[Rfam]
RNA sequence: UCCACGGCCCCUGCCACUCCACAAACAUGGUAGGCCAGCCGUGAAAAAAGGAGGAAAAGUUCAAGCCCGGACUCGGGCUGCGGCAGUGUGGAGACCUGUCGCAACGCGGCGCAGUCCAACGCGGCUGGCCGUGAGCACACAGCAAGCGGAUGCUCUGUGUGCGGAGUCGAGAAACAUGGCA
Numbered sequence: 001u002c003c004a005c006g007g008c009c010c011c012u013g014c015c016a017c018u019c020c021a022c023a024a025a026c027a028u029g030g031u032a033g034g035c036c037a038g039c040c041g042u043g044a045a046a047a048a049a050g051g052a053g054g055a056a057a058a059g060u061u062c063a064a065g066c067c068c069g070g071a072c073u074c075g076g077g078c079u080g081c082g083g084c085a086g087u088g089u090g091g092a093g094a095c096c097u098g099u100c101g102c103a104a105c106g107c108g109g110c111g112c113a114g115u116c117c118a119a120c121g122c123g124g125c126u127g128g129c130c131g132u133g134a135g136c137a138c139a140c141a142g143c144a145a146g147c148g149g150a151u152g153c154u155c156u157g158u159g160u161g162c163g164g165a166g167u168c169g170a171g172a173a174a175c176a177u178g179g180c181a
Stems, first nucleotide, its partner, number of pairs: 006040003010034007065078004070168005079103008088095002106132005112127003135162008145154003
RNA: malK-I RNA